This 100-nucleotide RNA from Paenibacillus lutrae belongs to the Rfam family "Purine riboswitch aptamer". Gene Ontology term of the family: purine nucleobase biosynthetic process. Taxonomically the source falls in Paenibacillus (Bacteria, Bacillati, Bacilli, Caryophanales). From the family's description: Riboswitches are metabolite binding domains within certain messenger RNAs that serve as precision sensors for their corresponding targets. Pairs were carried over by alignment from the consensus structure, which is taken from published work.
RNA sequence: AUAACAAAACUGAAUGCUUUUCGUAUAAUUCCGGGGAUAGGCCCGGAAGUUUCUACGAGGUCACCGUAAUGAUCUGGCUACGAAGAGAACGUGCAGCCUA
Numbered sequence: 001a002u003a004a005c006a007a008a009a010c011u012g013a014a015u016g017c018u019u020u021u022c023g024u025a026u027a028a029u030u031c032c033g034g035g036g037a038u039a040g041g042c043c044c045g046g047a048a049g050u051u052u053c054u055a056c057g058a059g060g061u062c063a064c065c066g067u068a069a070u071g072a073u074c075u076g077g078c079u080a081c082g083a084a085g086a087g088a089a090c091g092u093g094c095a096g097c098c099u100a
Stems, first nucleotide, its partner, number of pairs: 018086008029048007058075006